[Rfam]
RNA sequence: GAAAAAUGAAGAUACUCUGACUGCUUCCUAUGAUUACAGUGAAGACCUCAGAUCCAACUCUGAUUUCACUCUAGUU
Dot-bracket structure: ((((...........................................................)))).........
Shown here is a 76-nucleotide sequence from Calidris pygmaea, a member of the family "Small nucleolar RNA SNORD19". Taxonomically the source falls in Calidris (Eukaryota, Chordata, Archelosauria, Aves). A search with the family's covariance model found it, with a score of 36 bits. The base pairs follow the family's consensus structure.